[Rfam]
RNA sequence: CUGCCACAACGUGUGAUGUGCGACGGAGUCCAAGGUUGUGGCAGAGAGCUUGAGACGUCCAUCGCACCGUGCGUGAGUUUUCACGAACUACGUACGGCCCAAACACGGGAGAGAACGCUGAGCGUUACAAC
Dot-bracket structure: ((((((((((.(....................).))))))))))......................(((((((((.............)))))))))..................................
Numbered sequence: 001c002u003g004c005c006a007c008a009a010c011g012u013g014u015g016a017u018g019u020g021c022g023a024c025g026g027a028g029u030c031c032a033a034g035g036u037u038g039u040g041g042c043a044g045a046g047a048g049c050u051u052g053a054g055a056c057g058u059c060c061a062u063c064g065c066a067c068c069g070u071g072c073g074u075g076a077g078u079u080u081u082c083a084c085g086a087a088c089u090a091c092g093u094a095c096g097g098c099c100c101a102a103a104c105a106c107g108g109g110a111g112a113g114a115a116c117g118c119u120g121a122g123c124g125u126u127a128c129a130a131c
Stems, first nucleotide, its partner, number of pairs: 001044010012033001067097009